[Rfam]
The record is a 160-nucleotide RNA sequence, which matches "RT-2 RNA" in Rfam. The family's RNA type in Rfam is small RNA. Rfam's curators put it in the seed alignment.
RNA sequence: CCACAAAAAUGGCCGAUACCCUAUCUUUUGAAGCCUUUACACGGACGCUUUUUGCAUGGCGGGUGAUGUGCCUUACCCCGUUUCAUGUGUCGAGGCAAAGCAGAUUAGACGGCACCCUACAAUUUAUCUGCACGAAAGGCGAAUACCAAUUAUGACAAGU
Numbered sequence: 001c002c003a004c005a006a007a008a009a010u011g012g013c014c015g016a017u018a019c020c021c022u023a024u025c026u027u028u029u030g031a032a033g034c035c036u037u038u039a040c041a042c043g044g045a046c047g048c049u050u051u052u053u054g055c056a057u058g059g060c061g062g063g064u065g066a067u068g069u070g071c072c073u074u075a076c077c078c079c080g081u082u083u084c085a086u087g088u089g090u091c092g093a094g095g096c097a098a099a100g101c102a103g104a105u106u107a108g109a110c111g112g113c114a115c116c117c118u119a120c121a122a123u124u125u126a127u128c129u130g131c132a133c134g135a136a137a138g139g140c141g142a143a144u145a146c147c148a149a150u151u152a153u154g155a156c157a158a159g160u
Stems, first nucleotide, its partner, number of pairs: 001012003024139007033096005039090004047055002058082006100131005106126001107118002